[Rfam]
RNA: TPP riboswitch aptamer (THI element)
Organism: Roseovarius bejariae
RNA sequence: GCGUAACCGUUGGGGUGCCUUUUCAAGGCUGAGAGGCGUGAUUGCGUCAACCCAUCGAACCUGACCCGGGCAAUGCCGGCGUAGGGAACGGUCUUCUAUAUCUG
Dot-bracket structure: .....(((((((((..(((((...)))))......((((....))))...)))).....((((..((((......))))..))))..)))))............